[Rfam]
RNA sequence: CGACGCCGCGCGGGAGAGUCCUCACCGUUUGCCGGGUGGGGCGCCGAAGGGGCAAACUCCCCAAGAAGCUCUCAGGCGCCAGGACCGCGCGGAGGAG
Numbered sequence: 001c002g003a004c005g006c007c008g009c010g011c012g013g014g015a016g017a018g019u020c021c022u023c024a025c026c027g028u029u030u031g032c033c034g035g036g037u038g039g040g041g042c043g044c045c046g047a048a049g050g051g052g053c054a055a056a057c058u059c060c061c062c063a064a065g066a067a068g069c070u071c072u073c074a075g076g077c078g079c080c081a082g083g084a085c086c087g088c089g090c091g092g093a094g095g096a097g
Stems, first nucleotide, its partner, number of pairs: 006092008020041007043077003046073002050071003